[Rfam]
RNA sequence: UUCUUAUCAAGAGAGACGGAGGGAUUGGCCCUGUGAUGUCUCAGCAACCCGCCAUAACUGGUCCGGUGCUAAAUCCAAAAGGUAACAAGUUACCUGAAGAUGAGAA
Numbered sequence: 001u002u003c004u005u006a007u008c009a010a011g012a013g014a015g016a017c018g019g020a021g022g023g024a025u026u027g028g029c030c031c032u033g034u035g036a037u038g039u040c041u042c043a044g045c046a047a048c049c050c051g052c053c054a055u056a057a058c059u060g061g062u063c064c065g066g067u068g069c070u071a072a073a074u075c076c077a078a079a080a081g082g083u084a085a086c087a088a089g090u091u092a093c094c095u096g097a098a099g100a101u102g103a104g105a106a
Stems, first nucleotide, its partner, number of pairs: 001106008013042005021031003025078004043070004048066002051062004074098001079095001081094004
RNA: SAM riboswitch aptamer (S box leader)